RNA sequence: CUGUCCUGCUCGUGAUCGUCUUCUCACCCUUCACGUGGCAGGCGGGGAAGGGCCCUCGCUCAGCGAGGGCCCUUC
Numbered sequence: 001c002u003g004u005c006c007u008g009c010u011c012g013u014g015a016u017c018g019u020c021u022u023c024u025c026a027c028c029c030u031u032c033a034c035g036u037g038g039c040a041g042g043c044g045g046g047g048a049a050g051g052g053c054c055c056u057c058g059c060u061c062a063g064c065g066a067g068g069g070c071c072c073u074u075c
Base pairs, nucleotide, nucleotide: 001045002044003043005042006041007040008039009038010037012034013033014032015031018028047075048074049073050072051071052070053069054068055067056066057065058064059063
sodF sRNA: a 75-nucleotide sequence from Streptomyces klenkii. NCBI's taxonomy places the organism under Bacteria, Actinomycetes, Kitasatosporales, Streptomycetaceae, Streptomyces. It scores 59 bits against the family's covariance model. The pairing is the family consensus, mapped onto this sequence. The literature on the family includes a 2014 paper in Nucleic Acids Res by Kim et al., "Inverse regulation of Fe- and Ni-containing SOD genes by a Fur family regulator Nur through small RNA processed from 3'UTR of the sodF mRNA".